[Rfam]
Rfam assigns this 266-nucleotide RNA sequence from Acetohalobium arabaticum to the family "Bacterial large signal recognition particle RNA". Taxonomically the source falls in Acetohalobium arabaticum (Bacteria, Bacillati, Bacillota, Clostridia).
RNA sequence: UCGUGCUAGACGGGGUGGUAGCGGUGCCCUGUAACCCGCAAUCCGCUACAGCGGGGUUGAAGUCUAUCUGAGCAUUUUCCUUUUUAAGGUCAGGCUUAAGUAAGUGGCGUUGAAGGUUGGGUCCUACGCAACGGGAGUUUACAAACUCCGUCAGGCCCGGAAGGGAGCAGCGGUAAGUAAAUCUUUCCGUGUGCCGUAGGGGUACCUGACUGGAGCUAACUACUUAAGUAACGCUUAAACAGGAUUAUGCGAGGGUAGAUGCACGA
Numbered sequence: 001u002c003g004u005g006c007u008a009g010a011c012g013g014g015g016u017g018g019u020a021g022c023g024g025u026g027c028c029c030u031g032u033a034a035c036c037c038g039c040a041a042u043c044c045g046c047u048a049c050a051g052c053g054g055g056g057u058u059g060a061a062g063u064c065u066a067u068c069u070g071a072g073c074a075u076u077u078u079c080c081u082u083u084u085u086a087a088g089g090u091c092a093g094g095c096u097u098a099a100g101u102a103a104g105u106g107g108c109g110u111u112g113a114a115g116g117u118u119g120g121g122u123c124c125u126a127c128g129c130a131a132c133g134g135g136a137g138u139u140u141a142c143a144a145a146c147u148c149c150g151u152c153a154g155g156c157c158c159g160g161a162a163g164g165g166a167g168c169a170g171c172g173g174u175a176a177g178u179a180a181a182u183c184u185u186u187c188c189g190u191g192u193g194c195c196g197u198a199g200g201g202g203u204a205c206c207u208g209a210c211u212g213g214a215g216c217u218a219a220c221u222a223c224u225u226a227a228g229u230a231a232c233g234c235u236u237a238a239a240c241a242g243g244a245u246u247a248u249g250c251g252a253g254g255g256u257a258g259a260u261g262c263a264c265g266a
Stems, first nucleotide, its partner, number of pairs: 001266006009058003012030006019023001035055005063259007072250004079243003083239006093229001096227006104220002106217003115211008123200006129191002132189005137182006148173004156165003